[Rfam]
Shown here is a 223-nucleotide sequence from Streptomyces sp. So13.3, a member of the family "Streptomyces RNA 1601".
A search with the family's covariance model found it, with a score of 123 bits.
From the family's description: Identified by deep sequencing of transcriptome at the end of exponential growth phase. Appears longer on northern blot than sequencing transcript. Streptomyces specific.
By type it is a small RNA.

RNA sequence: AUCGACCGGCCGGACACACCUGUGCCCGGCCCACAAGUGGAGGCUCCGAUCUCCCACCCGACCGACCGAGAGGUUGGCGGGUCCGGUCAGGCAGCGUUCUUCGGUGGAUGGUUCUUCCGGACACCGAAGUGAGGCACGUGCUGCCCGAUGCGCCCCGCGGUGUUCCGUGGCGGUGCUCCCGGUUUUGAGGAGCCCUGCCUGUGACCUGUAUGGGGCGUUUUUU
Numbered sequence: 001a002u003c004g005a006c007c008g009g010c011c012g013g014a015c016a017c018a019c020c021u022g023u024g025c026c027c028g029g030c031c032c033a034c035a036a037g038u039g040g041a042g043g044c045u046c047c048g049a050u051c052u053c054c055c056a057c058c059c060g061a062c063c064g065a066c067c068g069a070g071a072g073g074u075u076g077g078c079g080g081g082u083c084c085g086g087u088c089a090g091g092c093a094g095c096g097u098u099c100u101u102c103g104g105u106g107g108a109u110g111g112u113u114c115u116u117c118c119g120g121a122c123a124c125c126g127a128a129g130u131g132a133g134g135c136a137c138g139u140g141c142u143g144c145c146c147g148a149u150g151c152g153c154c155c156c157g158c159g160g161u162g163u164u165c166c167g168u169g170g171c172g173g174u175g176c177u178c179c180c181g182g183u184u185u186u187g188a189g190g191a192g193c194c195c196u197g198c199c200u201g202u203g204a205c206c207u208g209u210a211u212g213g214g215g216c217g218u219u220u221u222u223u
Base pairs, nucleotide, nucleotide: 004088005087006086007085008084009083012027013026030081031080032079034060037057038056039055040054041052042051062077063076064075065074066073067072090145091144092143093142094141095140096139097138152216153215154214155213156212157211158208159206160205166203167202168201169199170198171197172196173195175193176192177191178190179189